[Rfam]
Shown here is a 461-nucleotide part of an RNA from Dientamoeba fragilis, a member of the family "Eukaryotic small subunit ribosomal RNA".

RNA sequence: UAGUUAAAACGCUCGUAGUCUGAAUUAUUUUAAUUUAAAUUUUUUAAAUUAAAAUUUAGUUUUUAUUUUAUAAAAACGUUCACUGUGGAACAAAUCAGAACGCUUAAAGUAAUUUUCUUUAUUGAAUGAUUUAGCGCAGUAUGAAAUUUUUACCUUUUAAAUUUUAAUUAAUUUAACAAGUAAUAUCAAAGAGAAUAAUCGGGGAUAGAUCUAUUUCAUGGCGAACAGCGAAAUGUUUUGACCCAUGAGAGAGAAACGAAGGCGAAAGCAUCUAUCAAGUGUAUUUCUAUCGAUCAAGGGCGAGAGUAGGAGUAUCCAACCGGAUCAGAGACCCGGGUAGUUCCUACCUUAAACUAUGCCGACAAGGUUUUGUUUUUUUUAAUAAAAGCAGUACCAUAGGAGAAAUCAUAGUUCAUGGGCUCUGGGGGAACUACGACCGCAAGGCUGAAACUUGAAGGAAU
Numbered sequence: 001u002a003g004u005u006a007a008a009a010c011g012c013u014c015g016u017a018g019u020c021u022g023a024a025u026u027a028u029u030u031u032a033a034u035u036u037a038a039a040u041u042u043u044u045u046a047a048a049u050u051a052a053a054a055u056u057u058a059g060u061u062u063u064u065a066u067u068u069u070a071u072a073a074a075a076a077c078g079u080u081c082a083c084u085g086u087g088g089a090a091c092a093a094a095u096c097a098g099a100a101c102g103c104u105u106a107a108a109g110u111a112a113u114u115u116u117c118u119u120u121a122u123u124g125a126a127u128g129a130u131u132u133a134g135c136g137c138a139g140u141a142u143g144a145a146a147u148u149u150u151u152a153c154c155u156u157u158u159a160a161a162u163u164u165u166a167a168u169u170a171a172u173u174u175a176a177c178a179a180g181u182a183a184u185a186u187c188a189a190a191g192a193g194a195a196u197a198a199u200c201g202g203g204g205a206u207a208g209a210u211c212u213a214u215u216u217c218a219u220g221g222c223g224a225a226c227a228g229c230g231a232a233a234u235g236u237u238u239u240g241a242c243c244c245a246u247g248a249g250a251g252a253g254a255a256a257c258g259a260a261g262g263c264g265a266a267a268g269c270a271u272c273u274a275u276c277a278a279g280u281g282u283a284u285u286u287c288u289a290u291c292g293a294u295c296a297a298g299g300g301c302g303a304g305a306g307u308a309g310g311a312g313u314a315u316c317c318a319a320c321c322g323g324a325u326c327a328g329a330g331a332c333c334c335g336g337g338u339a340g341u342u343c344c345u346a347c348c349u350u351a352a353a354c355u356a357u358g359c360c361g362a363c364a365a366g367g368u369u370u371u372g373u374u375u376u377u378u379u380u381a382a383u384a385a386a387a388g389c390a391g392u393a394c395c396a397u398a399g400g401a402g403a404a405a406u407c408a409u410a411g412u413u414c415a416u417g418g419g420c421u422c423u424g425g426g427g428g429a430a431c432u433a434c435g436a437c438c439g440c441a442a443g444g445c446u447g448a449a450a451c452u453u454g455a456a457g458g459a460a461u
Stems, first nucleotide, its partner, number of pairs: 001424003009421001011301004018294003192288004196283002200279001204276006210254002214250008225236003262269002306347006316340001320336004358420003361413003366395002370391008400407002426453003435446001437444002
The family has 90 seed sequences and 75,755 matches in Rfam 15.1. Rfam links the family to the GO terms ribosome and structural constituent of ribosome. Pairs were carried over by alignment from the consensus structure, which is taken from published work.